[Rfam]
RNA sequence: UACUAGCAAACCCUAUCUCCACCUCCACGUGGUGAUAACUGGUAGUUCUUUCUUCAUGAAAAACUGCAGACGGAGAAGG
Numbered sequence: 001u002a003c004u005a006g007c008a009a010a011c012c013c014u015a016u017c018u019c020c021a022c023c024u025c026c027a028c029g030u031g032g033u034g035a036u037a038a039c040u041g042g043u044a045g046u047u048c049u050u051u052c053u054u055c056a057u058g059a060a061a062a063a064c065u066g067c068a069g070a071c072g073g074a075g076a077a078g079g
Base pairs, nucleotide, nucleotide: 012079013078014077016075018073019072021033022032023031044065045064046063047062049060050059052058
Annotation:
The record is a 79-nucleotide RNA from Hermetia illucens, which matches "drz-agam-1 ribozyme" in Rfam. Rfam links the family to the GO term catalytic activity. Rfam 15.1 lists 10,507 matches to the family in 53 species.